[Rfam]
RNA: Group I catalytic intron
Organism: Golovinomyces cichoracearum
RNA sequence: AGUAGUUUCUCCUUCCAUAAUAGGAGAAACCUGUGGGGAAAGUACCCCUACCCUCCACAGGAAAACGGGGUAAAUUGCAUGGAACUCCUAACUUACCUCAUAUGAAAGGUAUAAAGGACAAUUUGCAGCCAAGCGUAUGUCAAAUAAAACUUAAAAGGGAUAUACGAAGGUUCAACGACUAGUAGGUGAGUACUUUAUUUACAAUAAUCCUGCCACGAAAACCCCGCAAUAAUAAGUAAUAAAUACAUAUUUAUGUAACCAUUAGUAUUAUUGAUGACAUAGUCUGAACCACACCGAUAAGGUGUGG
Numbered sequence: 001a002g003u004a005g006u007u008u009c010u011c012c013u014u015c016c017a018u019a020a021u022a023g024g025a026g027a028a029a030c031c032u033g034u035g036g037g038g039a040a041a042g043u044a045c046c047c048c049u050a051c052c053c054u055c056c057a058c059a060g061g062a063a064a065a066c067g068g069g070g071u072a073a074a075u076u077g078c079a080u081g082g083a084a085c086u087c088c089u090a091a092c093u094u095a096c097c098u099c100a101u102a103u104g105a106a107a108g109g110u111a112u113a114a115a116g117g118a119c120a121a122u123u124u125g126c127a128g129c130c131a132a133g134c135g136u137a138u139g140u141c142a143a144a145u146a147a148a149a150c151u152u153a154a155a156a157g158g159g160a161u162a163u164a165c166g167a168a169g170g171u172u173c174a175a176c177g178a179c180u181a182g183u184a185g186g187u188g189a190g191u192a193c194u195u196u197a198u199u200u201a202c203a204a205u206a207a208u209c210c211u212g213c214c215a216c217g218a219a220a221a222c223c224c225c226g227c228a229a230u231a232a233u234a235a236g237u238a239a240u241a242a243a244u245a246c247a248u249a250u251u252u253a254u255g256u257a258a259c260c261a262u263u264a265g266u267a268u269u270a271u272u273g274a275u276g277a278c279a280u281a282g283u284c285u286g287a288a289c290c291a292c293a294c295c296g297a298u299a300a301g302g303u304g305u306g307g
Stems, first nucleotide, its partner, number of pairs: 002015001004013002022032003066226004071221001076127004081122001086118004128171002136162003140158001175285001177284005229271006291305005